[Rfam]
RNA sequence: CACGCACAGGGCAAACCAUUCGAAAGGAUGGGACGCAAAGCUUCCGGCCUUACCCAUAAGUGACAGUUAUGAAAGGUAGCGGGGUUGCCGAUG
Numbered sequence: 001c002a003c004g005c006a007c008a009g010g011g012c013a014a015a016c017c018a019u020u021c022g023a024a025a026g027g028a029u030g031g032g033a034c035g036c037a038a039a040g041c042u043u044c045c046g047g048c049c050u051u052a053c054c055c056a057u058a059a060g061u062g063a064c065a066g067u068u069a070u071g072a073a074a075g076g077u078a079g080c081g082g083g084g085u086u087g088c089c090g091a092u093g
Base pairs, nucleotide, nucleotide: 001093003090004089011036012035016031017030018029019028020027021026034079039086040085041084042083044082045081046080047077048076049075050074051073